The record is a 97-nucleotide RNA from Cuscuta australis, which matches "Small nucleolar RNA Z122" in Rfam.
Rfam links the family to the GO terms RNA processing and nucleolus.
The source organism's lineage runs through Eukaryota, Streptophyta, Gunneridae, asterids and Cuscuta sect. Cleistogrammica.
It scores 51 bits against the family's covariance model.

[Rfam]
RNA sequence: ACUGGGAAGUGAUGAGAAACCAGUUUUAUUAUCAGAGGCCCACGAGUUUGCGCCGUGCUGAAUAAAAUAUGUAUUUGCACGUCAGUCUGAUCCCAAU
Numbered sequence: 001a002c003u004g005g006g007a008a009g010u011g012a013u014g015a016g017a018a019a020c021c022a023g024u025u026u027u028a029u030u031a032u033c034a035g036a037g038g039c040c041c042a043c044g045a046g047u048u049u050g051c052g053c054c055g056u057g058c059u060g061a062a063u064a065a066a067a068u069a070u071g072u073a074u075u076u077g078c079a080c081g082u083c084a085g086u087c088u089g090a091u092c093c094c095a096a097u
Stems, first nucleotide, its partner, number of pairs: 001097001003095005